[Rfam]
RNA sequence: AAAAGACGAUAAUAUAUGCCGAAGACAGUAGGUGUUCUUUUGAACAUAAUGAGCAAUCGCCUACCGAGGAAAAGUUAAAACAUGACUUUUUACCUCUCGAUGUCUUCGAGAGGUUUUUUUCGGCGGUUAA
Numbered sequence: 001a002a003a004a005g006a007c008g009a010u011a012a013u014a015u016a017u018g019c020c021g022a023a024g025a026c027a028g029u030a031g032g033u034g035u036u037c038u039u040u041u042g043a044a045c046a047u048a049a050u051g052a053g054c055a056a057u058c059g060c061c062u063a064c065c066g067a068g069g070a071a072a073a074g075u076u077a078a079a080a081c082a083u084g085a086c087u088u089u090u091u092a093c094c095u096c097u098c099g100a101u102g103u104c105u106u107c108g109a110g111a112g113g114u115u116u117u118u119u120u121c122g123g124c125g126g127u128u129a130a
Stems, first nucleotide, its partner, number of pairs: 028064006034045003092114009
This 130-nucleotide sequence from Butyrivibrio sp. Su6 belongs to the Rfam family "Ribosomal protein L10 leader". Taxonomically the source falls in Butyrivibrio (Bacteria, Bacillota, Lachnospirales, Lachnospiraceae). Gene Ontology term of the family: regulation of gene expression. Rfam classes the family as a cis-regulatory leader. Rfam describes the family as follows. This family is a putative r-protein leader autoregulatory structure found in B. subtilis and other low-GC Gram-positive bacteria. It is located in the 5' untranslated regions of mRNAs encoding ribosomal proteins L10 and L12 (rplJ-rplL). The family's consensus secondary structure was predicted with CMfinder.